[Rfam]
ASpks TB sRNA: an 81-nucleotide RNA sequence from Streptomyces buecherae.
RNA sequence: CUUGAUGGAGCCGAGCCACAGCGGGUGCGGCGUCUGGUCGGGGGUGCGCUUGCCGUACGUGGCGAGCAGUGCCUCCGCCUC
Dot-bracket structure: .............((.(..............).)).....((....(((((.(((....))).)))...))...)).....
By type it is an antisense RNA. Lineage of the source: Bacteria > Actinomycetota > Actinomycetes > Kitasatosporales > Streptomyces.